[Rfam]
RNA sequence: UGCCUACAGCCCUAAAGGCCAUGGCAUAAAAUACCGACGAAGAUUACUGAACCCACUGUUCAGGCUCCUUCGUCGGUCCAUGCUCGAAAGGGUAUGGGAGAGUCGCAAGAUUCUC
Dot-bracket structure: ((((....(((.....)))...)))).......(((((((((....((((((.....))))))....))))))))).((((((((....))))))))((((((......))))))
RNA: LOOT RNA